[Rfam]
This 45-nucleotide RNA sequence from Merluccius polli belongs to the Rfam family "Histone 3' UTR stem-loop". About the family: The mRNAs of metazoan histone genes lack a poly-A tail. 3' end processing occurs at a site between a highly conserved stem-loop (modelled by this family) and a purine rich region around 20 nts downstream (the histone downstream element, or HDE). A search with the family's covariance model found it, with a score of 36 bits. Taxonomically the source falls in Merluccius (Eukaryota, Neopterygii, Eurypterygia, Paracanthopterygii). The base pairs follow the family's consensus structure, which is taken from published work.

RNA sequence: CUAAAGGCUCUUUUAAGAGCCACCUACAUGUUGACAAGAGCUUUC
Numbered sequence: 001c002u003a004a005a006g007g008c009u010c011u012u013u014u015a016a017g018a019g020c021c022a023c024c025u026a027c028a029u030g031u032u033g034a035c036a037a038g039a040g041c042u043u044u045c
Stems, first nucleotide, its partner, number of pairs: 006021006
Dot-bracket structure: .....((((((....))))))........................